[Rfam]
RNA sequence: CCUCCGUUCCUUCGUGGAUUUUUGUGUCCAACGUUUGACCGUCUGUCUUAUAUUGAAUUUUUUUAUCAUUAGUAUUUUUAUUAUUGUUAGAUGAUAAAAUAUAAAUAAUACUUUAUGCAUAACUUAUCUUUUUAAAUUUUUUUAUAAUUUUUUUAAAUAAGACGAACGGUCAAGAUACGGAAACCCACGAAUUGAGUUUUU
Numbered sequence: 001c002c003u004c005c006g007u008u009c010c011u012u013c014g015u016g017g018a019u020u021u022u023u024g025u026g027u028c029c030a031a032c033g034u035u036u037g038a039c040c041g042u043c044u045g046u047c048u049u050a051u052a053u054u055g056a057a058u059u060u061u062u063u064u065a066u067c068a069u070u071a072g073u074a075u076u077u078u079u080a081u082u083a084u085u086g087u088u089a090g091a092u093g094a095u096a097a098a099a100u101a102u103a104a105a106u107a108a109u110a111c112u113u114u115a116u117g118c119a120u121a122a123c124u125u126a127u128c129u130u131u132u133u134a135a136a137u138u139u140u141u142u143u144a145u146a147a148u149u150u151u152u153u154u155a156a157a158u159a160a161g162a163c164g165a166a167c168g169g170u171c172a173a174g175a176u177a178c179g180g181a182a183a184c185c186c187a188c189g190a191a192u193u194g195a196g197u198u199u200u201u
Base pairs, nucleotide, nucleotide: 027175028174035173036172037171038170039169040168041167042166044164045163046162047161048160049159050158051157